[Rfam]
RNA sequence: GCGAUGAGCUGAAUUGUGUAAGUCAAUAAACACGCAAUUUGCAAUGUACUAUGUGGAGUACAGUUUAUUGCCUCAAUUUUUCGUUGAAGCAGAUGUCUGGAUGACAUCUGC
Numbered sequence: 001g002c003g004a005u006g007a008g009c010u011g012a013a014u015u016g017u018g019u020a021a022g023u024c025a026a027u028a029a030a031c032a033c034g035c036a037a038u039u040u041g042c043a044a045u046g047u048a049c050u051a052u053g054u055g056g057a058g059u060a061c062a063g064u065u066u067a068u069u070g071c072c073u074c075a076a077u078u079u080u081u082c083g084u085u086g087a088a089g090c091a092g093a094u095g096u097c098u099g100g101a102u103g104a105c106a107u108c109u110g111c
Base pairs, nucleotide, nucleotide: 014076015075016074018072024070025069026068027067028066029065030064031063034042035041045062046061048059049058050057089111090110091109092108093107094106095105096104097103
BsrF: a 111-nucleotide sequence from Bacillus coahuilensis.
A reference for the family is Saito et al. (2008), "Novel small RNA-encoding genes in the intergenic regions of Bacillus subtilis", Gene.
The source organism's lineage runs through Bacteria, Bacillati, Bacillaceae, Bacillus and Bacillus coahuilensis.
Pairs were carried over by alignment from the consensus structure, which was predicted with WAR.
The match comes from Rfam's covariance-model search (75 bits).